[Rfam]
RNA: TPP riboswitch aptamer (THI element)
Organism: Azonexus hydrophilus
RNA sequence: CCCACUCGUUAGGGGUGUCGCCAGCCGGUUUCGGUGUUUCGGUCGACUGAGAAAUACCCUUCGAACCUGACCGGGUCAUGCCGUCGUAGGGAAACGAACUCUGCCGUUG
Numbered sequence: 001c002c003c004a005c006u007c008g009u010u011a012g013g014g015g016u017g018u019c020g021c022c023a024g025c026c027g028g029u030u031u032c033g034g035u036g037u038u039u040c041g042g043u044c045g046a047c048u049g050a051g052a053a054a055u056a057c058c059c060u061u062c063g064a065a066c067c068u069g070a071c072c073g074g075g076u077c078a079u080g081c082c083g084u085c086g087u088a089g090g091g092a093a094a095c096g097a098a099c100u101c102u103g104c105c106g107u108u109g
Base pairs, nucleotide, nucleotide: 006097007096008095009094010093011060012059013058014057016054017047018046019045020044066090067089068088069087072083073082074081